Shown here is a 262-nucleotide RNA sequence from Mohoua ochrocephala, a member of the family "Small Cajal body specific RNA 6".
RNA sequence: GGUCUGUGAUGAAUAGUAAAAGGUCUGAUUAUCCCAAGACUUGCAGUUCCAUGCCCUUUCUCCCAGCAGUUUCUCCCCAGCCACGGCACAGCGAUGGCGUGGCUGGCAGAGCGUUUGCUGACAGCGUGAGAUGCGCUCAGGCCACGUUCACCUGGAGCAGCGGGGACGUGGCUGGGCUCAGCAUCCAACAGUCCUGCCUGAAGGAGUUUGGGGUCUUGGAGUGCUCUAACUGGACACGUGAUCUGACUUUUCUGCUGAGACC
Number, nucleotide and partner (000 for none) at each position: 001g262002g261003u260004c259005u000006g000007u000008g000009a000010u000011g000012a000013a000014u000015a000016g000017u000018a000019a000020a000021a000022g000023g000024u000025c000026u000027g000028a000029u000030u000031a000032u000033c000034c000035c000036a000037a244038g243039a242040c000041u240042u000043g000044c000045a000046g000047u221048u220049c219050c218051a217052u000053g215054c000055c000056c000057u000058u000059u000060c206061u205062c204063c203064c120065a119066g118067c117068a116069g115070u000071u000072u000073c000074u000075c000076c000077c106078c105079a104080g103081c102082c101083a100084c099085g098086g000087c000088a000089c000090a000091g000092c000093g000094a000095u000096g000097g000098c085099g084100u083101g082102g081103c080104u079105g078106g077107c000108a000109g000110a000111g000112c000113g000114u000115u069116u068117g067118c066119u065120g064121a000122c000123a000124g000125c000126g000127u000128g186129a000130g185131a184132u183133g182134c181135g000136c000137u000138c000139a000140g000141g000142c000143c170144a169145c168146g167147u166148u165149c164150a000151c162152c000153u160154g000155g000156a000157g000158c000159a000160g153161c000162g151163g000164g149165g148166a147167c146168g145169u144170g143171g000172c000173u000174g000175g000176g000177c000178u000179c000180a000181g134182c133183a132184u131185c130186c128187a000188a000189c000190a000191g000192u000193c000194c000195u000196g000197c000198c000199u000200g000201a000202a000203g063204g062205a061206g060207u000208u000209u000210g000211g000212g000213g000214u000215c053216u000217u051218g050219g049220a048221g047222u000223g000224c000225u000226c000227u000228a000229a000230c000231u000232g000233g000234a000235c000236a000237c000238g000239u000240g041241a000242u039243c038244u037245g000246a000247c000248u000249u000250u000251u000252c000253u000254g000255c000256u000257g000258a000259g004260a003261c002262c001
Rfam 15.1 lists 1,309 matches to the family in 627 species. Rfam links the family to the GO terms nucleolus and RNA processing. It scores 120 bits against the family's covariance model. NCBI's taxonomy places the organism under Eukaryota, Bilateria, Vertebrata, Aves, Mohoua. It is annotated as a small Cajal body RNA. Rfam describes the family as follows. U88 is small Cajal body specific RNA (scaRNA). scaRNAs are a novel class of small nuclear RNAs which localise to the Cajal bodies. U88 is found associated with both fibrillarin and Gar1p and co-localises with coilin in Cajal bodies. The literature on the family includes a 2002 paper in EMBO J by Darzacq et al., "Cajal body-specific small nuclear RNAs: a novel class of 2'-O-methylation and pseudouridylation guide RNAs".